The family of this 46-nucleotide sequence from Novipirellula galeiformis is "Acido-Lenti-1 RNA". The family's consensus secondary structure is taken from published work. It is annotated as a small RNA.
[Rfam]
RNA sequence: CCACGGACUGACGUCCGUGGCUGUUGCAUGUCAUCGCUUUGCGAUU
Dot-bracket structure: ((((((((....))))))))............(((((...))))).